[Rfam]
RNA: Fluoride riboswitch aptamer (crcB RNA motif)
RNA sequence: UGAAGAUAAGGAGAUGGUGUUCCUCCUUUUGAAGAAACCGCAGCCGUUUAGCGCUGCUGAUGACGCCUACAGGACC
Numbered sequence: 001u002g003a004a005g006a007u008a009a010g011g012a013g014a015u016g017g018u019g020u021u022c023c024u025c026c027u028u029u030u031g032a033a034g035a036a037a038c039c040g041c042a043g044c045c046g047u048u049u050a051g052c053g054c055u056g057c058u059g060a061u062g063a064c065g066c067c068u069a070c071a072g073g074a075c076c
Stems, first nucleotide, its partner, number of pairs: 010026004016067006040057004
Dot-bracket structure: .........[[[[..((((((.]]]].............((((..........))))....)))))).........